[Rfam]
RNA sequence: AUACAAGAGUCAGAACGUAGACAACCCCAGUUUUAUGCUCAAAAAGCAUGAAUAGCUCUGCUGAUUUGACAUUCGGUUUCCGAUUUUUACACACAAAGUGAGCCAAAACAGAUGCUUUUUGCUGUGGUAAAAGAGUGGCGUCAAUCUCGUAUUGACGCCACUCGGGAUUUUUGAGACCUCAGGCUCAAAAAUAAAGGCAUGGAAUUCCAAAGAACGUCGCUGCCGUAAGCACCACCUAAGGAAAGUAUCACGACAAACUUUGUCUUCAAUCUGACAAGAGUUUUU
Numbered sequence: 001a002u003a004c005a006a007g008a009g010u011c012a013g014a015a016c017g018u019a020g021a022c023a024a025c026c027c028c029a030g031u032u033u034u035a036u037g038c039u040c041a042a043a044a045a046g047c048a049u050g051a052a053u054a055g056c057u058c059u060g061c062u063g064a065u066u067u068g069a070c071a072u073u074c075g076g077u078u079u080c081c082g083a084u085u086u087u088u089a090c091a092c093a094c095a096a097a098g099u100g101a102g103c104c105a106a107a108a109c110a111g112a113u114g115c116u117u118u119u120u121g122c123u124g125u126g127g128u129a130a131a132a133g134a135g136u137g138g139c140g141u142c143a144a145u146c147u148c149g150u151a152u153u154g155a156c157g158c159c160a161c162u163c164g165g166g167a168u169u170u171u172u173g174a175g176a177c178c179u180c181a182g183g184c185u186c187a188a189a190a191a192u193a194a195a196g197g198c199a200u201g202g203a204a205u206u207c208c209a210a211a212g213a214a215c216g217u218c219g220c221u222g223c224c225g226u227a228a229g230c231a232c233c234a235c236c237u238a239a240g241g242a243a244a245g246u247a248u249c250a251c252g253a254c255a256a257a258c259u260u261u262g263u264c265u266u267c268a269a270u271c272u273g274a275c276a277a278g279a280g281u282u283u284u285u
Stems, first nucleotide, its partner, number of pairs: 005285004009275006016075002019072001022068003028063004036055001089118001091116001094114001098109002119269003126265002130263001132261005138232001140230002143226001167192009177183002196224004202218002206214001208212001241249002
Dot-bracket structure: ....((((((((((.((.(..(((...((((....(..................)....))))..)))...).)).............(.(..(...((........))....).).)(((....((..(.(((((.(.((.(.......................(((((((((.((...)))))))))))...((((..((..(.(...).)..))..)))).)..)).)........((.....)).......))))).))).)))))))))......))))